The family of this 106-nucleotide RNA from Pediococcus acidilactici is "TPP riboswitch aptamer (THI element)".
The source organism's lineage runs through Bacteria, Lactobacillales, Lactobacillaceae, Pediococcus and Pediococcus acidilactici.
The literature on the family includes a 2002 paper in J Biol Chem by Rodionov et al., "Comparative genomics of thiamin biosynthesis in procaryotes. New genes and regulatory mechanisms".
The base pairs follow the family's consensus structure, which is taken from published work.
RNA sequence: UAUCUACACUAGGGGUGUUCGUAGAAGAACUGAGAUGCGCUUGUGCAGCGUGAUCCCUUUGAACCUGUAAGUUGAUACUUGCGAAGGAAAGUGUUUAUUGGGCGAA
Numbered sequence: 001u002a003u004c005u006a007c008a009c010u011a012g013g014g015g016u017g018u019u020c021g022u023a024g025a026a027g028a029a030c031u032g033a034g035a036u037g038c039g040c041u042u043g044u045g046c047a048g049c050g051u052g053a054u055c056c057c058u059u060u061g062a063a064c065c066u067g068u069a070a071g072u073u074g075a076u077a078c079u080u081g082c083g084a085a086g087g088a089a090a091g092u093g094u095u096u097a098u099u100g101g102g103c104g105a106a
Base pairs, nucleotide, nucleotide: 006094007093008092009091010090011058012057013056014055016052017030018029019028020027037051038050039049040048041047064087065086066085068081069080070079071078